Rfam assigns this 225-nucleotide sequence from Arboricoccus pini to the family "permuted transfer-messenger RNA". Rfam's curators write: Bacterial tmRNA, also known as 10Sa RNA or SsrA, is named for its dual tRNA and mRNA-like properties. Pairs were carried over by alignment from the consensus structure, which is taken from published work.

RNA sequence: GGCGAUAAACGCCGUUCAGAAUAAGCGUUACGGACCCGGGGGCAGAGCCCGGCGCCUCCACCAUCCUUGACUGAGGCCGAGGUGAUUGCUCGGCUGGGACCGAGGGGGCGAAUUAGGAUCGACGUGCGUGGUAAAGGGACGGCUUUUGCCCGGCAUGGUUCCGCCGUUAUCGGGCCGAAUACAAGUGCCAACGAUAACCGUUCGGUCACCGCUCUCGCUGCCUAA
Numbered sequence: 001g002g003c004g005a006u007a008a009a010c011g012c013c014g015u016u017c018a019g020a021a022u023a024a025g026c027g028u029u030a031c032g033g034a035c036c037c038g039g040g041g042g043c044a045g046a047g048c049c050c051g052g053c054g055c056c057u058c059c060a061c062c063a064u065c066c067u068u069g070a071c072u073g074a075g076g077c078c079g080a081g082g083u084g085a086u087u088g089c090u091c092g093g094c095u096g097g098g099a100c101c102g103a104g105g106g107g108g109c110g111a112a113u114u115a116g117g118a119u120c121g122a123c124g125u126g127c128g129u130g131g132u133a134a135a136g137g138g139a140c141g142g143c144u145u146u147u148g149c150c151c152g153g154c155a156u157g158g159u160u161c162c163g164c165c166g167u168u169a170u171c172g173g174g175c176c177g178a179a180u181a182c183a184a185g186u187g188c189c190a191a192c193g194a195u196a197a198c199c200g201u202u203c204g205g206u207c208a209c210c211g212c213u214c215u216c217g218c219u220g221c222c223u224a225a
Stems, first nucleotide, its partner, number of pairs: 001150005014140004026128003030125003036052005053110007151166004